[Rfam]
A member of the RNA family "Plant small nucleolar RNA R71" from Panicum miliaceum, 108 nucleotides long. The base pairs follow the family's consensus structure, which was predicted with PFOLD. The source organism's lineage runs through Eukaryota, Mesangiospermae, Liliopsida, Poaceae and Panicum sect. Panicum. A reference for the family is Brown et al. (2003), "Plant snoRNAs: functional evolution and new modes of gene expression", Trends Plant Sci.
RNA sequence: AUGCCAUGGUUUGGGCAUGUUGCAAUGUAUUCCUGGAGACGUUCCCAGGCUUCCGAGAUUGUCUUAUCUGGAGUUGUUGAAAACUGGAAAUCCUGUUCCGUAGGGCAU
Numbered sequence: 001a002u003g004c005c006a007u008g009g010u011u012u013g014g015g016c017a018u019g020u021u022g023c024a025a026u027g028u029a030u031u032c033c034u035g036g037a038g039a040c041g042u043u044c045c046c047a048g049g050c051u052u053c054c055g056a057g058a059u060u061g062u063c064u065u066a067u068c069u070g071g072a073g074u075u076g077u078u079g080a081a082a083a084c085u086g087g088a089a090a091u092c093c094u095g096u097u098c099c100g101u102a103g104g105g106c107a108u
Stems, first nucleotide, its partner, number of pairs: 001108001003106002005103001057074001060071001
It is annotated as a C/D-box small nucleolar RNA. The match comes from Rfam's covariance-model search (43 bits).